Shown here is a 151-nucleotide sequence from Arabidopsis thaliana, a member of the family "MIR4228 microRNA precursor family".
The source organism's lineage runs through Eukaryota, Streptophytina, Embryophyta, eudicotyledons and Arabidopsis.
Rfam links the family to the GO terms miRNA-mediated post-transcriptional gene silencing and RISC complex.
Nucleotides: 151
Stems, first nucleotide, its partner, number of pairs: 001149005016144003020138002023135001025133021047111007054103002064094003
Number, partner (000 for none) and nucleotide at each position: 001149c002148g003147g004146c005145g006000u007000g008000u009000u010000g011000u012000u013000u014000u015000a016144a017143c018142c019000u020138a021137a022000u023135a024000g025133c026132c027131u028130u029129g030128a031127a032126c033125g034124c035123c036122g037121u038120c039119g040118u041117u042116u043115c044114g045113u046000c047111u048110c049109c050108g051107a052106c053105g054103a055102c056000a057000u058000u059000c060000a061000c062000a063000c064094g065093c066092g067000c068000a069000c070000a071000c072000u073000u074000c075000c076000a077000c078000c079000c080000u081000u082000a083000c084000c085000a086000u087000c088000u089000a090000u091000c092066c093065g094064u095000c096000u097000c098000a099000c100000a101000c102055g103054u104000g105053c106052g107051u108050c109049g110048g111047a112000u113045g114044c115043g116042a117041a118040a119039c120038g121037g122036u123035g124034g125033u126032g127031u128030u129029c130028a131027g132026g133025g134000a135023u136000u137021u138020u139000u140000u141000a142018g143017g144016u145005u146004g147003c148002c149001g150000g151000a